RNA sequence: AUACCGUCACAACGGCUUCCUGGCGUGGCGGGAUACCCCCUAAUGGAGCA
Dot-bracket structure: ...(((((((..(([[[.[[))..))))))).............]]]]].